[Rfam]
RNA: mir-166 microRNA precursor family
Organism: Solanum tuberosum
RNA sequence: UUUGAGGGGAAUGUUGUCUGGCUCGAAGUCAUUAUGUCUUCUCGAUCAUUUAAGUACUAUAGAUCGAACCAAUUCAAUUUAUAUUUUUAAAUCUAGUGUAAAUAUAUAUGAUCACCAUGAGUUAGUGUCUUCGGACCAGGCUUCAUUCCCCCCAAU
Number, nucleotide and partner (000 for none) at each position: 001u000002u155003u154004g153005a000006g151007g150008g149009g148010a147011a146012u145013g144014u000015u000016g141017u140018c139019u138020g137021g136022c000023u000024c133025g132026a131027a130028g129029u000030c000031a000032u000033u000034a000035u000036g000037u000038c000039u000040u000041c000042u000043c000044g000045a000046u000047c000048a000049u000050u000051u000052a000053a000054g000055u000056a000057c000058u000059a000060u000061a000062g000063a000064u000065c000066g000067a000068a000069c000070c000071a000072a000073u000074u000075c000076a000077a000078u000079u000080u000081a000082u000083a000084u000085u000086u000087u000088u000089a000090a000091a000092u000093c000094u000095a000096g000097u000098g000099u000100a000101a000102a000103u000104a000105u000106a000107u000108a000109u000110g000111a000112u000113c000114a000115c000116c000117a000118u000119g000120a000121g000122u000123u000124a000125g000126u000127g000128u000129c028130u027131u026132c025133g024134g000135a000136c021137c020138a019139g018140g017141c016142u000143u000144c013145a012146u011147u010148c009149c008150c007151c006152c000153c004154a003155a002156u000